Shown here is a 62-nucleotide sequence from Ampelopsis japonica, a member of the family "Plastid-psbA-4 3UTR RNA". It is annotated as a cis-regulatory element. The base pairs follow the family's consensus structure, which was predicted with LocARNA. Rfam's curators put it in the seed alignment. Rfam describes the family as follows. Plastid psbA-4 is a non-coding RNA (ncRNA) present in plastids. It was identified in inverted repeat sequences in the 3 prime untranslate region (3UTR) of photosystem II quinone-binding protein (psbA). The literature on the family includes a 2023 paper in Plant Commun by Richter et al., "Retrograde signaling in plants: A critical review focusing on the GUN pathway and beyond".
RNA sequence: GAAUGUAAAGGAGCAAUAACCAAUUUCCUCUUCUAUCGAGGGGGAUGGUAUUGCUCCUUUAU
Number, nucleotide and partner (000 for none) at each position: 001g000002a000003a000004u000005g000006u000007a060008a059009a058010g057011g056012a055013g054014c053015a052016a051017u050018a049019a000020c000021c000022a000023a000024u000025u042026u041027c040028c000029u038030c000031u000032u000033c000034u000035a000036u000037c000038g029039a000040g027041g026042g025043g000044g000045a000046u000047g000048g000049u018050a017051u016052u015053g014054c013055u012056c011057c010058u009059u008060u007061a000062u000